[Rfam]
This 128-nucleotide RNA from Sphenodon punctatus belongs to the Rfam family "Small Cajal body specific RNA 4". A search with the family's covariance model found it, with a score of 103 bits.
RNA sequence: ACUGGAGGAUUAAGAAAGUAGAGUCUGUUAAGCUGGGCUCUACUGAUACUAUUCUCCUAGAGGAAAAGGAUGAAGAGAGUGGCCCUACUUACAGAAGAGGAAGGGACCGACUGUGCCAUCCAACAUUU
Number, nucleotide and partner (000 for none) at each position: 001a000002c060003u059004g057005g056006a055007g054008g053009a052010u000011u000012a000013a000014g000015a000016a000017a044018g043019u042020a000021g040022a039023g038024u037025c036026u035027g000028u000029u000030a000031a000032g000033c000034u000035g026036g025037g024038c023039u022040c021041u000042a019043c018044u017045g000046a000047u000048a000049c000050u000051a000052u009053u008054c007055u006056c005057c004058u000059a003060g002061a000062g000063g000064a000065a000066a000067a000068g121069g120070a119071u118072g000073a000074a000075g000076a000077g000078a112079g111080u109081g108082g107083c000084c105085c104086u103087a000088c000089u000090u101091a000092c099093a000094g000095a000096a000097g000098a000099g092100g000101a090102a000103g086104g085105g084106a000107c082108c081109g080110a000111c079112u078113g000114u000115g000116c000117c000118a071119u070120c069121c068122a000123a000124c000125a000126u000127u000128u000
The base pairs follow the family's consensus structure, which was predicted with RNAfold. From the family's description: scaRNAs are a specific class of small nuclear RNAs which localise to the Cajal bodies and guide the modification of RNA polymerase II transcribed spliceosomal RNAs U1, U2, U4, U5 and U12. ACA26 belongs to the H/ACA box class of guide RNAs as it has the predicted hairpin-hinge-hairpin-tail structure, conserved H/ACA-box motifs and is found associated with GAR1. It is annotated as a small Cajal body RNA. NCBI's taxonomy places the organism under Eukaryota, Metazoa, Sphenodontia, Sphenodontidae, Sphenodon. Clan: SCARNA4 clan.